[Rfam]
RNA sequence: ACAGGGGGAUCUUCGACUAAUUACACUCACGUCCUGUGAGUAACGUCGAAGUCACUACAUCCUGUAGA
Number, nucleotide and partner (000 for none) at each position: 001a000002c000003a000004g000005g000006g000007g000008g000009a000010u000011c051012u050013u049014c048015g047016a046017c045018u000019a000020a000021u000022u000023a000024c000025a000026c040027u039028c038029a037030c036031g000032u000033c000034c000035u000036g030037u029038g028039a027040g026041u000042a000043a000044c000045g017046u016047c015048g014049a013050a012051g011052u000053c000054a000055c067056u066057a065058c064059a000060u000061c000062c000063u000064g058065u057066a056067g055068a000
RNA: Bacillaceae-1 RNA
Organism: Sporolactobacillus laevolacticus